[Rfam]
Nucleotides: 083
Stems, first nucleotide, its partner, number of pairs: 012037002017032006040077003045073003048068003055062002
Number, partner (000 for none) and nucleotide at each position: 001000u002000a003000a004000a005000u006000a007000u008000a009000u010000a011000g012037g013036c014000a015000a016000a017032a018031u019030c020029a021028c022027u023000g024000a025000a026000a027022a028021g029020u030019g031018g032017u033000g034000a035000c036013g037012c038000a039000a040077a041076g042075c043000a044000a045073u046072g047071g048068g049067u050066c051000u052000a053000a054000a055062g056061a057000u058000u059000u060000a061056u062055c063000u064000a065000u066050g067049a068048u069000a070000g071047c072046c073045a074000g075042g076041c077040u078000g079000c080000a081000a082000u083000g